[Rfam]
Plastid-psbN 5UTR RNA: a 61-nucleotide RNA sequence from Malus domestica.
RNA sequence: UGUGAGACCCAUCGAAAGAGUAAUUCCCCAUCCAAGAGCCAUUUUACCAUAUUCUAAAUUU
Numbered sequence: 001u002g003u004g005a006g007a008c009c010c011a012u013c014g015a016a017a018g019a020g021u022a023a024u025u026c027c028c029c030a031u032c033c034a035a036g037a038g039c040c041a042u043u044u045u046a047c048c049a050u051a052u053u054c055u056a057a058a059u060u061u
Stems, first nucleotide, its partner, number of pairs: 017045005024038003

The base pairs follow the family's consensus structure, which was predicted with LocARNA. Rfam's curators write: Plastid psbN is a non-coding RNA (ncRNA) recognised in plastids. Rfam 15.1 lists 2,345 matches to the family in 397 species. The source organism's lineage runs through Eukaryota, eudicotyledons, Pentapetalae, rosids and Malus. A search with the family's covariance model found it, with a score of 53 bits.